[Rfam]
RNA sequence: GCCGAACGACAGGGGAGCGUCGGGCCACGGCCCGGGCGCUGAGAGUGCGGACCACCGCAGACCCUCGAACCUGAUCCGGGUGAUACCGGCGUAGGGAGUCGGGCUUUCUCUCCU
Number, nucleotide and partner (000 for none) at each position: 001g000002c000003c000004g000005a000006a000007c101008g100009a099010c098011a065012g064013g063014g062015g000016a000017g039018c038019g037020u036021c035022g000023g000024g000025c000026c000027a000028c000029g000030g000031c000032c000033c000034g000035g021036g020037c019038g018039c017040u000041g000042a000043g000044a000045g000046u059047g058048c057049g056050g055051a000052c000053c000054a000055c050056c049057g048058c047059a046060g000061a000062c014063c013064c012065u011066c000067g000068a000069a000070c095071c094072u093073g092074a000075u000076c089077c088078g087079g086080g000081u000082g000083a000084u000085a000086c079087c078088g077089g076090c000091g000092u073093a072094g071095g070096g000097a000098g010099u009100c008101g007102g000103g000104c000105u000106u000107u000108c000109u000110c000111u000112c000113c000114u000
RNA: TPP riboswitch aptamer (THI element)
Organism: Cellulomonas gilvus